The record is a 225-nucleotide RNA sequence from Pseudomonas sp. MRSN 12121, which matches "Nitrogen regulated small RNA" in Rfam. For this family Rfam cites "NrsZ: a novel, processed, nitrogen-dependent, small non-coding RNA that regulates Pseudomonas aeruginosa PAO1 virulence" (Wenner et al., Environ Microbiol, 2014). Its family is annotated with bacterial-type flagellum-dependent swarming motility in the Gene Ontology.
RNA sequence: UCACCCGUUUUGGGGACCUUGGUACAGGCAGGCCGAGCAUCCCCCUCUUUACACCCGGACCCACACCGCUCACAGCGACGGGUCCACCCGGUUUCGGGAACCCCGGUACAGGCAGGCCGGGGACUUCCCGCUUUAUCCAGGGCCCGACGCGCUCAGCGCUCCGGCCCACACGCUUUUGGGGACCCUGGUACAGGCAGGCCGGGAAUCCCCUCUUUUAUUCCUCCC
Number, nucleotide and partner (000 for none) at each position: 001u000002c000003a000004c000005c000006c000007g000008u000009u000010u000011u000012g044013g043014g042015g041016a040017c000018c037019u036020u035021g034022g033023u032024a000025c000026a000027g000028g000029c000030a000031g000032g023033c022034c021035g020036a019037g018038c000039a000040u016041c015042c014043c013044c012045c000046u000047c000048u000049u000050u000051a000052c000053a000054c000055c000056c000057g085058g084059a083060c082061c081062c000063a000064c000065a000066c000067c077068g076069c075070u000071c000072a000073c000074a000075g069076c068077g067078a000079c000080g000081g061082g060083u059084c058085c057086a000087c000088c000089c000090g000091g000092u000093u000094u000095c000096g129097g128098g127099a126100a125101c000102c121103c120104c119105g118106g117107u116108a000109c000110a000111g000112g000113c000114a000115g000116g107117c106118c105119g104120g103121g102122g000123a000124c000125u100126u099127c098128c097129c096130g000131c000132u000133u000134u000135a000136u000137c000138c000139a000140g000141g166142g165143c000144c164145c163146g162147a000148c000149g159150c158151g157152c156153u000154c000155a000156g152157c151158g150159c149160u000161c000162c146163g145164g144165c142166c141167c000168a000169c000170a000171c000172g000173c000174u000175u000176u000177u000178g211179g210180g209181g208182a000183c000184c203185c202186u201187g200188g199189u198190a000191c000192a000193g000194g000195c000196a000197g000198g189199c188200c187201g186202g185203g184204a000205a000206u000207c000208c181209c180210c179211u178212c000213u000214u000215u000216u000217a000218u000219u000220c000221c000222u000223c000224c000225c000
A search with the family's covariance model found it, with a score of 143 bits. The base pairs follow the family's consensus structure.